[Rfam]
RNA sequence: UCUACCAAAGAUCGCCCUCCGUCAGCGCGUUGCGCCCACGGGGGUAUUUGGG
Numbered sequence: 001u002c003u004a005c006c007a008a009a010g011a012u013c014g015c016c017c018u019c020c021g022u023c024a025g026c027g028c029g030u031u032g033c034g035c036c037c038a039c040g041g042g043g044g045u046a047u048u049u050g051g052g
Base pairs, nucleotide, nucleotide: 016044017043018042019041020040021039022038025035026034027033028032